L31-Actinobacteria ribosomal protein leader: a 46-nucleotide RNA from Sporichthya polymorpha. Rfam's curators put it in the seed alignment. It is annotated as a cis-regulatory leader. The base pairs follow the family's consensus structure, which is taken from published work. The family is grouped with related families in Rfam's "Ribosomal Protein L31 Leader clan".

[Rfam]
RNA sequence: CCGGUUCCGGUUCACGCCCCGUGACCAGCGGUGGCGACCCGGAGCC
Numbered sequence: 001c002c003g004g005u006u007c008c009g010g011u012u013c014a015c016g017c018c019c020c021g022u023g024a025c026c027a028g029c030g031g032u033g034g035c036g037a038c039c040c041g042g043a044g045c046c
Base pairs, nucleotide, nucleotide: 003046004045005044007042008041009040010039015036016035017034018033019031020030021029022028